[Rfam]
RNA sequence: CCCGCCACUAUGCUAGUCUGUGUGAGUGACUUGGUAUAAUCCAGUGGAGGCUGAGAGAAACCCAGCUCUAGGAAGCAGAGCUGCUCAGUCUGAUGGGUAACUCUGUGCCGAAAGGCCUGGGACACAC
Dot-bracket structure: ....(((((........((((.......).).))........)))))..............((((((.(.((...(((((...(((........)))...)))))..))..).)).)))).......
This 127-nucleotide sequence from Pangasianodon hypophthalmus belongs to the Rfam family "Small nucleolar RNA SNORA65". Its family is annotated with nucleolus and RNA processing in the Gene Ontology. Rfam describes the family as follows. U65 belongs to the H/ACA class of snoRNAs which are thought to guide the sites of modification of uridines to pseudouridines. The family has 14 seed sequences and 1,089 matches in Rfam 15.1. The match comes from Rfam's covariance-model search (94 bits). It is annotated as an H/ACA-box small nucleolar RNA. On this family, see Huttenhofer et al., EMBO J 2001: "RNomics: an experimental approach that identifies 201 candidates for novel, small, non-messenger RNAs in mouse".